[Rfam]
RNA sequence: CGAUUCUUGAUGGAGGGGUGGGUGAGCACCACCGACGUGGUUCGAGCCGUAGUGAGUUUGCGAACGAGACAACAUUGCGCGUUCUUUGCGCAAUAGCCCGAAGGGGAAUAAUCCACCCCCCACCACCA
Number, nucleotide and partner (000 for none) at each position: 001c000002g000003a000004u000005u000006c000007u000008u000009g000010a000011u000012g000013g000014a000015g119016g118017g117018g116019u115020g114021g113022g000023u111024g000025a000026g000027c000028a000029c000030c000031a000032c000033c000034g000035a000036c104037g000038u000039g000040g000041u102042u101043c100044g099045a000046g000047c000048c066049g065050u000051a000052g000053u000054g000055a000056g000057u000058u000059u000060g000061c000062g000063a000064a000065c049066g048067a000068g000069a000070c000071a000072a000073c000074a094075u093076u092077g091078c090079g089080c088081g087082u000083u000084c000085u000086u000087u081088g080089c079090g078091c077092a076093a075094u074095a000096g000097c000098c000099c044100g043101a042102a041103g000104g036105g000106g000107a000108a000109u000110a000111a023112u000113c021114c020115a019116c018117c017118c016119c015120c000121c000122a000123c000124c000125a000126c000127c000128a000
RtT RNA: a 128-nucleotide RNA from Amphritea balenae. It is annotated as a cis-regulatory element. The literature on the family includes a 1991 paper in Nucleic Acids Res by Bosl and Kersten, "A novel RNA product of the tyrT operon of Escherichia coli". NCBI's taxonomy places the organism under Bacteria, Pseudomonadati, Gammaproteobacteria, Oceanospirillaceae, Amphritea. This family represents a bacterial cis-regulatory element known as RtT RNA. The exact function of RtT is unknown although it is thought that it may be involved in changing the cellular response in relation to amino acid starvation. Its family is annotated with cellular response to amino acid starvation in the Gene Ontology.